[Rfam]
RNA sequence: AGGCCUGGAGAGAGAAGCAGGGUCUGAUCCGCAGCCUCCAUGGCAACUGUUGGUCAGCCCUUGCCUCUCUCUCUCUGGACC
Numbered sequence: 001a002g003g004c005c006u007g008g009a010g011a012g013a014g015a016a017g018c019a020g021g022g023u024c025u026g027a028u029c030c031g032c033a034g035c036c037u038c039c040a041u042g043g044c045a046a047c048u049g050u051u052g053g054u055c056a057g058c059c060c061u062u063g064c065c066u067c068u069c070u071c072u073c074u075c076u077g078g079a080c081c
Stems, first nucleotide, its partner, number of pairs: 008073008017064004022059001024057006032049003